[Rfam]
This 151-nucleotide sequence from Paenibacillus contaminans belongs to the Rfam family "FMN riboswitch aptamer (RFN element)". NCBI's taxonomy places the organism under Bacteria, Bacillota, Bacilli, Caryophanales, Paenibacillus. It scores 116 bits against the family's covariance model.

RNA sequence: GUGGACCUUCGGGGCAGGGUGAAAUUCCCGACCGGCGGUGAUGGUUCCUGUGAACCUAAGCCCGCGACUCGCUAAACGCCGUAUGGCGCAUGGCGACUGACUUGGUGCGAUUCCAAGGCCGACGGUACAGUCCGGAUGGGAGAAGGUCGCA
Numbered sequence: 001g002u003g004g005a006c007c008u009u010c011g012g013g014g015c016a017g018g019g020u021g022a023a024a025u026u027c028c029c030g031a032c033c034g035g036c037g038g039u040g041a042u043g044g045u046u047c048c049u050g051u052g053a054a055c056c057u058a059a060g061c062c063c064g065c066g067a068c069u070c071g072c073u074a075a076a077c078g079c080c081g082u083a084u085g086g087c088g089c090a091u092g093g094c095g096a097c098u099g100a101c102u103u104g105g106u107g108c109g110a111u112u113c114c115a116a117g118g119c120c121g122a123c124g125g126u127a128c129a130g131u132c133c134g135g136a137u138g139g140g141a142g143a144a145g146g147u148c149g150c151a
Base pairs, nucleotide, nucleotide: 004148005147006146007145008144009143010142017029018028019027031131032130033121034120035065036064037063038062060119061118069096070095071094072093073092074091101117102116103115104114105113123134124133125132